[Rfam]
RNA sequence: UUGUUGCUUGCUUCAGCAGUGUUUGGAUGGAACAG
Numbered sequence: 001u002u003g004u005u006g007c008u009u010g011c012u013u014c015a016g017c018a019g020u021g022u023u024u025g026g027a028u029g030g031a032a033c034a035g
Base pairs, nucleotide, nucleotide: 001035002034003033004032005031007030008029010028012027013026014025015024016023017021
The family of this 35-nucleotide RNA from Moschus moschiferus is "Iron response element I". For this family Rfam cites "Identification of the iron-responsive element for the translational regulation of human ferritin mRNA" (Hentze et al., Science, 1987). The family's consensus secondary structure is taken from published work. The match comes from Rfam's covariance-model search (40 bits).